[Rfam]
RNA: Bacterial small signal recognition particle RNA
Organism: Helicobacter sp. CLO-3
RNA sequence: UUUUCAGACCUAUGCAAGGUUAUUUUCUGGCAACGCUUCAGGGUGGGAACACAGCAGAGCACUGGAUUUUGGCUUGUGCCGUAGGUAUCUGAAGAGGG
Numbered sequence: 001u002u003u004u005c006a007g008a009c010c011u012a013u014g015c016a017a018g019g020u021u022a023u024u025u026u027c028u029g030g031c032a033a034c035g036c037u038u039c040a041g042g043g044u045g046g047g048a049a050c051a052c053a054g055c056a057g058a059g060c061a062c063u064g065g066a067u068u069u070u071g072g073c074u075u076g077u078g079c080c081g082u083a084g085g086u087a088u089c090u091g092a093a094g095a096g097g098g
Base pairs, nucleotide, nucleotide: 004092005091006090007089008088009085010084011083012082013081014080015076017075018074019073020072021071022070026066027065028064029063030062035060036059037058038057043052044051045050